This 159-nucleotide sequence from Spiroplasma diminutum belongs to the Rfam family "Ribosomal protein L10 leader".
The family's RNA type in Rfam is cis-regulatory leader.
From the family's description: This family is a putative r-protein leader autoregulatory structure found in B. subtilis and other low-GC Gram-positive bacteria.
[Rfam]
RNA sequence: AUAUUAAUGCUAUUCGUACCGAAGAAAGUAACUGGGAUUUAUCCCUUAAUUUGUUACCGAGGAAUGAAACUACAUAUAUAAUUGUAAGUUUUUCUUACAAUGUUUAUUGUAUUUUUAAUUGACCUCGGAAAUUAUCUGAGGUUUUAUUUUGAUCUUAAA
Numbered sequence: 001a002u003a004u005u006a007a008u009g010c011u012a013u014u015c016g017u018a019c020c021g022a023a024g025a026a027a028g029u030a031a032c033u034g035g036g037a038u039u040u041a042u043c044c045c046u047u048a049a050u051u052u053g054u055u056a057c058c059g060a061g062g063a064a065u066g067a068a069a070c071u072a073c074a075u076a077u078a079u080a081a082u083u084g085u086a087a088g089u090u091u092u093u094c095u096u097a098c099a100a101u102g103u104u105u106a107u108u109g110u111a112u113u114u115u116u117a118a119u120u121g122a123c124c125u126c127g128g129a130a131a132u133u134a135u136c137u138g139a140g141g142u143u144u145u146a147u148u149u150u151g152a153u154c155u156u157a158a159a
Stems, first nucleotide, its partner, number of pairs: 028057005034045003121143009